[Rfam]
RNA sequence: UGGAUGGCUCCGUGUUGUGGUCCGACCCCCCGACCCCGACGGCAAUACGGGGCCUCCC
Numbered sequence: 001u002g003g004a005u006g007g008c009u010c011c012g013u014g015u016u017g018u019g020g021u022c023c024g025a026c027c028c029c030c031c032g033a034c035c036c037c038g039a040c041g042g043c044a045a046u047a048c049g050g051g052g053c054c055u056c057c058c
Stems, first nucleotide, its partner, number of pairs: 002057003007053012020040003
RNA: F6 TB sRNA